[Rfam]
RNA sequence: CGUAAAAACAAAAAAAGACAAUGAGAACAAUAUCGGUAAAUACAUAUUGGUGGUGGCGUCCGUUACAACUCCGACAGUCGUAAGGGAGCAGCGCUCGUAUGUAUAUAUCCGAUGUAUAAAUAAGGAACAACAGAAAACAGAAAGAGCCCUGUC
Numbered sequence: 001c002g003u004a005a006a007a008a009c010a011a012a013a014a015a016a017g018a019c020a021a022u023g024a025g026a027a028c029a030a031u032a033u034c035g036g037u038a039a040a041u042a043c044a045u046a047u048u049g050g051u052g053g054u055g056g057c058g059u060c061c062g063u064u065a066c067a068a069c070u071c072c073g074a075c076a077g078u079c080g081u082a083a084g085g086g087a088g089c090a091g092c093g094c095u096c097g098u099a100u101g102u103a104u105a106u107a108u109c110c111g112a113u114g115u116a117u118a119a120a121u122a123a124g125g126a127a128c129a130a131c132a133g134a135a136a137a138c139a140g141a142a143a144g145a146g147c148c149c150u151g152u153c
Base pairs, nucleotide, nucleotide: 036108037107038106040104041103042102043101044100045099046098047097049095050094051093052092056089057088059086060085061084066080068078069077070076